RNA sequence: UUUAACAUCGGUUUGUGACUGUCCUAGUUGGGGGCGUAGGUGAAGGAUUGUGAUAAUCCUAGUUGGUAAUACUAGACCUGAGCGACUUUGAACCUAUGA
Numbered sequence: 001u002u003u004a005a006c007a008u009c010g011g012u013u014u015g016u017g018a019c020u021g022u023c024c025u026a027g028u029u030g031g032g033g034g035c036g037u038a039g040g041u042g043a044a045g046g047a048u049u050g051u052g053a054u055a056a057u058c059c060u061a062g063u064u065g066g067u068a069a070u071a072c073u074a075g076a077c078c079u080g081a082g083c084g085a086c087u088u089u090g091a092a093c094c095u096a097u098g099a
Base pairs, nucleotide, nucleotide: 006082008080010078021077022076024075025074026073027072035098036097037096038095039094040093041092044060045059046058047057048056049055061087062086063085064084065083